transfer-messenger RNA: a 329-nucleotide RNA from Sneathia vaginalis. Bacterial tmRNA, also known as 10Sa RNA or SsrA, is named for its dual tRNA and mRNA-like properties. Its role is to liberate the mRNA from a stalled ribosome. To accomplish this part of the tmRNA is used as a reading frame that ends in a translation stop signal. Gene Ontology term of the family: RNA catabolic process. Rfam classes the family as a non-coding RNA gene. Pairs were carried over by alignment from the consensus structure, which is taken from published work. The family is grouped with related families in Rfam's "tRNA clan".

RNA sequence: GGGAGUGUCAGGUUUCGACAGGAUAAGAACCAUGUUAUAAGCAAGUAGUAGUGAUACUAUAAAUCUUUUUUAAAAUAAUUGGAAACAGUUAUAAAUUAGCUGCGUAGUAACGCAACCAUUUUGCUAGGCUUGCUAUAGGCUUAGUAUAAAUGUUAUUUAUAUAGCUUACUUUAUAAUUAUGGUUAUAUUUAUAAAGGAAAUUAAUAACCUAGUUUAGAGCCCUUUGGCAAUUUAGCAUCUCUAAACGAAAAAGUUAAAUUGCAUAAACUUGUAGAAAGUAGUAUGUAGUCUUAUUUUGGACACGAGUUCAAUUCUCGUCACUUCCACCA
Numbered sequence: 001g002g003g004a005g006u007g008u009c010a011g012g013u014u015u016c017g018a019c020a021g022g023a024u025a026a027g028a029a030c031c032a033u034g035u036u037a038u039a040a041g042c043a044a045g046u047a048g049u050a051g052u053g054a055u056a057c058u059a060u061a062a063a064u065c066u067u068u069u070u071u072a073a074a075a076u077a078a079u080u081g082g083a084a085a086c087a088g089u090u091a092u093a094a095a096u097u098a099g100c101u102g103c104g105u106a107g108u109a110a111c112g113c114a115a116c117c118a119u120u121u122u123g124c125u126a127g128g129c130u131u132g133c134u135a136u137a138g139g140c141u142u143a144g145u146a147u148a149a150a151u152g153u154u155a156u157u158u159a160u161a162u163a164g165c166u167u168a169c170u171u172u173a174u175a176a177u178u179a180u181g182g183u184u185a186u187a188u189u190u191a192u193a194a195a196g197g198a199a200a201u202u203a204a205u206a207a208c209c210u211a212g213u214u215u216a217g218a219g220c221c222c223u224u225u226g227g228c229a230a231u232u233u234a235g236c237a238u239c240u241c242u243a244a245a246c247g248a249a250a251a252a253g254u255u256a257a258a259u260u261g262c263a264u265a266a267a268c269u270u271g272u273a274g275a276a277a278g279u280a281g282u283a284u285g286u287a288g289u290c291u292u293a294u295u296u297u298g299g300a301c302a303c304g305a306g307u308u309c310a311a312u313u314c315u316c317g318u319c320a321c322u323u324c325c326a327c328c329a
Base pairs, nucleotide, nucleotide: 001325002324003323004322005321006320007319019298020297021296022295023294024293025292026291027290028289031285032284033283034282035281036280037279038278042271043270044269045268046267048058051055053067054066101114102113104111105110117152118151119150120149121148122146123145124144125143127141128140129139130138132165133164134163135162169196170195171194172193173192174191175190176189181210182209184207212246213245214244215243216242217241218240219239222235223234227262228261229260231256302318303317304316305315306314
Dot-bracket structure: (((((((...........((((((((((..((((((((...(((((.[..[.((]..].......)).................................((.((....)).))..(((((((((.((((.[[[[..)))).)))).))))).........]]]]...((((((((....[[.[....))))))))..........].]].((((((((..((...[[[.[..))...)))))))).........]...]]]....)))))......))))))))...))))))))))...(((((.......))))))))))))....
It scores 120 bits against the family's covariance model.